[Rfam]
RNA sequence: AGCUUCAACAUCCCCGUCGGUCGGGUUCGCCAUGGCGAAUAGUGGAUCGACUGGAGCC
Numbered sequence: 001a002g003c004u005u006c007a008a009c010a011u012c013c014c015c016g017u018c019g020g021u022c023g024g025g026u027u028c029g030c031c032a033u034g035g036c037g038a039a040u041a042g043u044g045g046a047u048c049g050a051c052u053g054g055a056g057c058c
Stems, first nucleotide, its partner, number of pairs: 002057006013044001014042001016051007023043001025040006
RNA: nadA riboswitch